[Rfam]
RNA sequence: CCGGGGAGCCGGGCAGCCGCGUCAUGGUCUACCCAUGCCGAGGAAAGUCCGGGCUCCGCGAAACGAAGGUGGCGGGUAACGCCCGCCGGACGAGUGGGGCUUCCAGGCCUCGCGAAGUUCAGGGAAAGUGCCACAGAGAGCAGACCGCCGAUGGUGCCUUCGGGUUCACAGGCAAGGCUGAAAGGGUGCGGUAAGAGCGCACCGCGCUUCCGGUAACGGACAGCGGCAAGGCAAACCCCACCUGGAGCAAGACCGAAUAGGGGCUGCGCGCCAUCUUGAAUGGCGGGUCUGUUUCGGACCCAGGCAGCCCGGGUUGGUUGCUUGAGCGCCAUGGCAACAUGUCGCCAAGAGGAAUGGCUGCCACCUGGCGUAAGGUCCCCCGUUCAAGGCAACUUGGGGGAGACCACGCCCGGUACAGAACCCGGCUUACAGGCUCCCCGGCAUU
Numbered sequence: 001c002c003g004g005g006g007a008g009c010c011g012g013g014c015a016g017c018c019g020c021g022u023c024a025u026g027g028u029c030u031a032c033c034c035a036u037g038c039c040g041a042g043g044a045a046a047g048u049c050c051g052g053g054c055u056c057c058g059c060g061a062a063a064c065g066a067a068g069g070u071g072g073c074g075g076g077u078a079a080c081g082c083c084c085g086c087c088g089g090a091c092g093a094g095u096g097g098g099g100c101u102u103c104c105a106g107g108c109c110u111c112g113c114g115a116a117g118u119u120c121a122g123g124g125a126a127a128g129u130g131c132c133a134c135a136g137a138g139a140g141c142a143g144a145c146c147g148c149c150g151a152u153g154g155u156g157c158c159u160u161c162g163g164g165u166u167c168a169c170a171g172g173c174a175a176g177g178c179u180g181a182a183a184g185g186g187u188g189c190g191g192u193a194a195g196a197g198c199g200c201a202c203c204g205c206g207c208u209u210c211c212g213g214u215a216a217c218g219g220a221c222a223g224c225g226g227c228a229a230g231g232c233a234a235a236c237c238c239c240a241c242c243u244g245g246a247g248c249a250a251g252a253c254c255g256a257a258u259a260g261g262g263g264c265u266g267c268g269c270g271c272c273a274u275c276u277u278g279a280a281u282g283g284c285g286g287g288u289c290u291g292u293u294u295c296g297g298a299c300c301c302a303g304g305c306a307g308c309c310c311g312g313g314u315u316g317g318u319u320g321c322u323u324g325a326g327c328g329c330c331a332u333g334g335c336a337a338c339a340u341g342u343c344g345c346c347a348a349g350a351g352g353a354a355u356g357g358c359u360g361c362c363a364c365c366u367g368g369c370g371u372a373a374g375g376u377c378c379c380c381c382g383u384u385c386a387a388g389g390c391a392a393c394u395u396g397g398g399g400g401a402g403a404c405c406a407c408g409c410c411c412g413g414u415a416c417a418g419a420a421c422c423c424g425g426c427u428u429a430c431a432g433g434c435u436c437c438c439c440g441g442c443a444u445u
Stems, first nucleotide, its partner, number of pairs: 001441010011430001012362007020040002023037005045428003049425005054247004063294001065292001067243005072086005087122001088120004123238002128236002130232003145177002147173003152168003185203006204227001205225004210219003251319004261310006286300005326345003330341004
Dot-bracket structure: ((((((((((((((((((.((.(((((.....))))).))....[[[.[[[[[((((.....[.[.((((((((((.....)))))(((((.........................)))).)((...(((((............(((((..(((...........)))..)))..)).......((((((.......))))))(((((.(((....)))..)))).)..)))..)))))))))))))...((((......((((((...................(((((.].].)))))....)))))).....))))......(((.((((....)))).)))..........)))))))..........................................................]]]]]]]].).))))))))))....
Description:
The family of this 445-nucleotide RNA sequence from Novosphingobium aureum is "Bacterial RNase P class A". The match comes from Rfam's covariance-model search (273 bits). Rfam classes the family as a ribozyme. Pairs were carried over by alignment from the consensus structure, which is taken from published work.